[Rfam]
RNA sequence: UUUCAUGGUGGCAUGAAUCUUUGAGACCUGAUUAUUCUCAUGAUGACAACUAUAAGCAUAUCUUCUGAAGAC
Numbered sequence: 001u002u003u004c005a006u007g008g009u010g011g012c013a014u015g016a017a018u019c020u021u022u023g024a025g026a027c028c029u030g031a032u033u034a035u036u037c038u039c040a041u042g043a044u045g046a047c048a049a050c051u052a053u054a055a056g057c058a059u060a061u062c063u064u065c066u067g068a069a070g071a072c
Stems, first nucleotide, its partner, number of pairs: 001071003031041002
Shown here is a 72-nucleotide RNA from Miscanthus lutarioriparius, a member of the family "Small nucleolar RNA R66". The literature on the family includes a 2003 paper in Nucleic Acids Res by Chen et al., "The high diversity of snoRNAs in plants: identification and comparative study of 120 snoRNA genes from Oryza sativa". Rfam's curators write: snoR66 is a C/D box small nucleolar RNA, which acts as a methylation guide for 18S ribosomal RNA in plants. snoR66 has been alternatively named snoZ269 in rice. Rfam classes the family as a C/D-box small nucleolar RNA. The match comes from Rfam's covariance-model search (68 bits).